[Rfam]
Nucleotides: 096
Stems, first nucleotide, its partner, number of pairs: 004093005037065002042060001043058005
Number, partner (000 for none) and nucleotide at each position: 001000c002000u003000u004093u005092g006091u007090g008089c009000u010000g011000u012000g013000a014000c015000g016000a017000g018000a019000g020000a021000a022000u023000c024000g025000u026000g027000g028000a029000c030000u031000a032000g033000a034000g035000u036000u037065u038064c039000u040000g041000a042060u043058u044057u045056g046055a047054g048000g049000a050000u051000u052000u053000a054047c055046u056045c057044a058043g059000a060042a061000g062000u063000u064038g065037a066000u067000u068000a069000u070000g071000a072000a073000a074000c075000c076000c077000u078000u079000g080000g081000c082000u083000g084000u085000c086000c087000g088000a089008g090007c091006a092005c093004a094000c095000c096000a

A member of the RNA family "Small nucleolar RNA Z157/R69/R10" from Phaseolus vulgaris, 96 nucleotides long. Its family is annotated with nucleolus and RNA processing in the Gene Ontology. Rfam 15.1 lists 836 matches to the family in 232 species. It scores 61 bits against the family's covariance model. It is annotated as a C/D-box small nucleolar RNA.